[Rfam]
RNA sequence: CGGGAUAAAUAUCCCGCAGGGAUGUGGCCUUUAACAGGCUGAACCGUGAA
Numbered sequence: 001c002g003g004g005a006u007a008a009a010u011a012u013c014c015c016g017c018a019g020g021g022a023u024g025u026g027g028c029c030u031u032u033a034a035c036a037g038g039c040u041g042a043a044c045c046g047u048g049a050a
Stems, first nucleotide, its partner, number of pairs: 001016005019045002026040005
Shown here is a 50-nucleotide RNA sequence, a member of the family "eL15-Euryarchaeota ribosomal protein leader". The literature on the family includes a 2020 paper in BMC Microbiol by Eckert and Weinberg, "Discovery of 20 novel ribosomal leader candidates in bacteria and archaea". The base pairs follow the family's consensus structure, which is taken from published work. Rfam classes the family as a cis-regulatory leader.